This 68-nucleotide RNA sequence from Flavobacterium rivulicola belongs to the Rfam family "S15-Flavobacteria ribosomal protein leader". For this family Rfam cites "Discovery of 20 novel ribosomal leader candidates in bacteria and archaea" (Eckert and Weinberg, BMC Microbiol, 2020).
RNA sequence: UACCUUUGCACACGAAUUGAGAAAGUCUUAAUUCAUACAUAAUAAUCAUUUAAAUAAAUAUUGGAAUG
Numbered sequence: 001u002a003c004c005u006u007u008g009c010a011c012a013c014g015a016a017u018u019g020a021g022a023a024a025g026u027c028u029u030a031a032u033u034c035a036u037a038c039a040u041a042a043u044a045a046u047c048a049u050u051u052a053a054a055u056a057a058a059u060a061u062u063g064g065a066a067u068g
Base pairs, nucleotide, nucleotide: 014034015033016032017031018030019029